[Rfam]
RNA sequence: AAAUAUCCGUGCGCAUAACUCCACAGUAUUAUGCGCACAGAUUCAGAAAUGGAGGAUGGAAUUCCGCUCAACUUGUGGUGCGGUAGUGUGGAGAUCUACCGUAAAGUACGCGGCUUUCAAAAGCUGGGUGCGAGGGGAGUCCUCGAAAAAGGGACUUGCCAAAGUAAUGAUCGAUGGCU
Numbered sequence: 001a002a003a004u005a006u007c008c009g010u011g012c013g014c015a016u017a018a019c020u021c022c023a024c025a026g027u028a029u030u031a032u033g034c035g036c037a038c039a040g041a042u043u044c045a046g047a048a049a050u051g052g053a054g055g056a057u058g059g060a061a062u063u064c065c066g067c068u069c070a071a072c073u074u075g076u077g078g079u080g081c082g083g084u085a086g087u088g089u090g091g092a093g094a095u096c097u098a099c100c101g102u103a104a105a106g107u108a109c110g111c112g113g114c115u116u117u118c119a120a121a122a123g124c125u126g127g128g129u130g131c132g133a134g135g136g137g138a139g140u141c142c143u144c145g146a147a148a149a150a151g152g153g154a155c156u157u158g159c160c161a162a163a164g165u166a167a168u169g170a171u172c173g174a175u176g177g178c179u
Stems, first nucleotide, its partner, number of pairs: 006041002009038010064078004071165004079103008088095002106131004111126004134160002137157005
A member of the RNA family "malK-I RNA" from Oscillibacter valericigenes, 179 nucleotides long. The source organism's lineage runs through Bacteria, Bacillota, Clostridia, Oscillospiraceae and Oscillibacter valericigenes. Rfam's curators put it in the seed alignment. By type it is a cis-regulatory element.